[Rfam]
RNA: Actinobacteria sRNA Ms_IGR-5
Organism: Streptomyces populi
RNA sequence: ACGUAGGAGAGGAGGUGGUUCGGCUCAUGACGGAAACCCGGACAUACGAGGUGGCUGCGGGCUAGCGGCCCGUUGCCGGACUCGGUUCGGCGCCGGACCAGCAUGUGUGAUGUGCAUGCAGCCGGCCCAAUCCAACGCAGUCACCCGACCCGCGAGCUCGCCGGUGCGUCCGGCCGGCCCCGUCGCCGCAAGGCGGAGGGACCCGAGCUCGCGGGUCGUCCGCU
Numbered sequence: 001a002c003g004u005a006g007g008a009g010a011g012g013a014g015g016u017g018g019u020u021c022g023g024c025u026c027a028u029g030a031c032g033g034a035a036a037c038c039c040g041g042a043c044a045u046a047c048g049a050g051g052u053g054g055c056u057g058c059g060g061g062c063u064a065g066c067g068g069c070c071c072g073u074u075g076c077c078g079g080a081c082u083c084g085g086u087u088c089g090g091c092g093c094c095g096g097a098c099c100a101g102c103a104u105g106u107g108u109g110a111u112g113u114g115c116a117u118g119c120a121g122c123c124g125g126c127c128c129a130a131u132c133c134a135a136c137g138c139a140g141u142c143a144c145c146c147g148a149c150c151c152g153c154g155a156g157c158u159c160g161c162c163g164g165u166g167c168g169u170c171c172g173g174c175c176g177g178c179c180c181c182g183u184c185g186c187c188g189c190a191a192g193g194c195g196g197a198g199g200g201a202c203c204c205g206a207g208c209u210c211g212c213g214g215g216u217c218g219u220c221c222g223c224u
Stems, first nucleotide, its partner, number of pairs: 015058005060127004065122002068119002146218013160178006